The record is a 53-nucleotide RNA sequence, which matches "Mu-gpT-DE RNA" in Rfam. The family's RNA type in Rfam is small RNA.
[Rfam]
RNA sequence: CCCUGACAGUGACAUGGUGUUACUGACAUUAACCCAGACAGGAGAUCGACAUG
Numbered sequence: 001c002c003c004u005g006a007c008a009g010u011g012a013c014a015u016g017g018u019g020u021u022a023c024u025g026a027c028a029u030u031a032a033c034c035c036a037g038a039c040a041g042g043a044g045a046u047c048g049a050c051a052u053g
Stems, first nucleotide, its partner, number of pairs: 002042004007025005